The family of this 375-nucleotide sequence from Saccharothrix australiensis is "transfer-messenger RNA". Gene Ontology term of the family: RNA catabolic process.

RNA sequence: GGGGGUGAACGGUUUCGACUUUGUGCGUUGAUUCAAGGGAAGCGUGUCGGUGCAGGCGAGAGACCACCGUGAGCGUCAUCGCAAACCAAUAAGCGCCGAGUCUAACGACCAGGCCGCUUACUCCCUCGCCGCCUGAGGCUAGGAGAGUGAGCUGUCAGCCCGGAGGAGCCUCCGCUCCGGAUGCUGGCAUCAGCUAGGAGGCUCACCGCCGUCCCCGGUCACGGGGGACGGUCGGGACACCCACAGUGACUGGGCCCGUCACGAGCGACUUGUCCGCGUGAUCGCCGGGGCCGAGUAGAGGCACAGCGGACUGCACACGGAGAAGCCUUGAUGAAGCGGCAGAGGACCCGGGUUCGAUUCCCGGCACCUCCACGG
Numbered sequence: 001g002g003g004g005g006u007g008a009a010c011g012g013u014u015u016c017g018a019c020u021u022u023g024u025g026c027g028u029u030g031a032u033u034c035a036a037g038g039g040a041a042g043c044g045u046g047u048c049g050g051u052g053c054a055g056g057c058g059a060g061a062g063a064c065c066a067c068c069g070u071g072a073g074c075g076u077c078a079u080c081g082c083a084a085a086c087c088a089a090u091a092a093g094c095g096c097c098g099a100g101u102c103u104a105a106c107g108a109c110c111a112g113g114c115c116g117c118u119u120a121c122u123c124c125c126u127c128g129c130c131g132c133c134u135g136a137g138g139c140u141a142g143g144a145g146a147g148u149g150a151g152c153u154g155u156c157a158g159c160c161c162g163g164a165g166g167a168g169c170c171u172c173c174g175c176u177c178c179g180g181a182u183g184c185u186g187g188c189a190u191c192a193g194c195u196a197g198g199a200g201g202c203u204c205a206c207c208g209c210c211g212u213c214c215c216c217g218g219u220c221a222c223g224g225g226g227g228a229c230g231g232u233c234g235g236g237a238c239a240c241c242c243a244c245a246g247u248g249a250c251u252g253g254g255c256c257c258g259u260c261a262c263g264a265g266c267g268a269c270u271u272g273u274c275c276g277c278g279u280g281a282u283c284g285c286c287g288g289g290g291c292c293g294a295g296u297a298g299a300g301g302c303a304c305a306g307c308g309g310a311c312u313g314c315a316c317a318c319g320g321a322g323a324a325g326c327c328u329u330g331a332u333g334a335a336g337c338g339g340c341a342g343a344g345g346a347c348c349c350g351g352g353u354u355c356g357a358u359u360c361c362c363g364g365c366a367c368c369u370c371c372a373c374g375g
Stems, first nucleotide, its partner, number of pairs: 001371007019344006028335001033331006043319005048069005056082004118150006125143002153189006160180006168202006206234001208232007217251006253292005267283002272311004279305002348364005
The family's RNA type in Rfam is non-coding RNA gene. A search with the family's covariance model found it, with a score of 118 bits.